[Rfam]
Rfam assigns this 86-nucleotide RNA sequence from Geotalea uraniireducens to the family "pan motif".

RNA sequence: GGACCGUAACAUGUGCGGAUCCAAUGCGUUUCACGAGUAAACACAAUUAAAUACCGCCAGGAUUCCAUGUGAACCGGGACGGGAGG
Numbered sequence: 001g002g003a004c005c006g007u008a009a010c011a012u013g014u015g016c017g018g019a020u021c022c023a024a025u026g027c028g029u030u031u032c033a034c035g036a037g038u039a040a041a042c043a044c045a046a047u048u049a050a051a052u053a054c055c056g057c058c059a060g061g062a063u064u065c066c067a068u069g070u071g072a073a074c075c076g077g078g079a080c081g082g083g084a085g086g
Stems, first nucleotide, its partner, number of pairs: 001022003004018005054082003057078002060075002063073003